sul1 RNA: a 55-nucleotide RNA sequence from Chenggangzhangella methanolivorans.
Nucleotides: 055
Stems, first nucleotide, its partner, number of pairs: 006023006012016001031049005
Number, partner (000 for none) and nucleotide at each position: 001000g002000a003000c004000g005000g006023a007022c008021c009020c010019g011018g012016c013000c014000u015000u016012g017000c018011c019010c020009g021008g022007g023006u024000g025000g026000c027000u028000c029000a030000u031049c032048c033047c034046g035045g036000c037000g038000c039000c040000u041000a042000u043000c044000c045035c046034c047033g048032g049031g050000c051000u052000a053000c054000a055000u